[Rfam]
RNA: Trans-activating crRNA
RNA sequence: CUAUGGAACUAUUCAAUACAGCAUAGCAAAGUUAAAAUAAGGCUUUGUCCGUAAUCAACCUGAAAAGGGGAGCACCGAAUCGGUGCUUUUUUA
Numbered sequence: 001c002u003a004u005g006g007a008a009c010u011a012u013u014c015a016a017u018a019c020a021g022c023a024u025a026g027c028a029a030a031g032u033u034a035a036a037a038u039a040a041g042g043c044u045u046u047g048u049c050c051g052u053a054a055u056c057a058a059c060c061u062g063a064a065a066a067g068g069g070g071a072g073c074a075c076c077g078a079a080u081c082g083g084u085g086c087u088u089u090u091u092u093a
Stems, first nucleotide, its partner, number of pairs: 002036001004034002009026004014021001041050002060067002071087007